RNA sequence: CCGCUUCAUCAAGAGAAGGGCUGGCGCCCUCGCCAACCUGCCAACCGGGCAAGGUGGUUUCCGCACUCGGGAUGUGGCUGUGCCGGAAUUUCUGGUUUCAGCAACCAAGCGGUUCUUC
Numbered sequence: 001c002c003g004c005u006u007c008a009u010c011a012a013g014a015g016a017a018g019g020g021c022u023g024g025c026g027c028c029c030u031c032g033c034c035a036a037c038c039u040g041c042c043a044a045c046c047g048g049g050c051a052a053g054g055u056g057g058u059u060u061c062c063g064c065a066c067u068c069g070g071g072a073u074g075u076g077g078c079u080g081u082g083c084c085g086g087a088a089u090u091u092c093u094g095g096u097u098u099c100a101g102c103a104a105c106c107a108a109g110c111g112g113u114u115c116u117u118c
Stems, first nucleotide, its partner, number of pairs: 007074004015031001017030005032058003037054003040050003044114001046112001077102004
Overview:
SAM-I/IV (S-adenosyl methionine) riboswitch aptamer: a 118-nucleotide sequence from Roseibium sp. TrichSKD4. Its Rfam clan is "SAM clan".